Notes: The record is a 98-nucleotide RNA sequence from Mycolicibacterium agri, which matches "Mycobacterium sRNA Ms_AS-1" in Rfam. A search with the family's covariance model found it, with a score of 96 bits. Pairs were carried over by alignment from the consensus structure. A reference for the family is Li et al. (2013), "Identification of small RNAs in Mycobacterium smegmatis using heterologous Hfq", RNA. It is annotated as a small RNA.
[Rfam]
RNA sequence: GUCGGAUUCGGGAUGAAGUGGUUGACGACGCCGCCGAUCACCGCGUACGUGCGCUUGCCAUCGGUGAGCAUCUGCACGCCGCGGCGUCUGAAUUCCAU
Numbered sequence: 001g002u003c004g005g006a007u008u009c010g011g012g013a014u015g016a017a018g019u020g021g022u023u024g025a026c027g028a029c030g031c032c033g034c035c036g037a038u039c040a041c042c043g044c045g046u047a048c049g050u051g052c053g054c055u056u057g058c059c060a061u062c063g064g065u066g067a068g069c070a071u072c073u074g075c076a077c078g079c080c081g082c083g084g085c086g087u088c089u090g091a092a093u094u095c096c097a098u
Base pairs, nucleotide, nucleotide: 008037009036010035011034014033015032018029019028021026043054044053045052046051079090081088